[Rfam]
RNA: Makes More Granules Regulator RNA (mmgR)
RNA sequence: CGAUCAGGCCUUUCAGGCAUCCUCUCCCAAACUUCACAAGCCGGCCCCUGUGGCCGGCUUUUCUUUUUCGCGGCA
Numbered sequence: 001c002g003a004u005c006a007g008g009c010c011u012u013u014c015a016g017g018c019a020u021c022c023u024c025u026c027c028c029a030a031a032c033u034u035c036a037c038a039a040g041c042c043g044g045c046c047c048c049u050g051u052g053g054c055c056g057g058c059u060u061u062u063c064u065u066u067u068u069c070g071c072g073g074c075a
Base pairs, nucleotide, nucleotide: 008018009017010016011015038060039059040058041057042056043055044054045053046052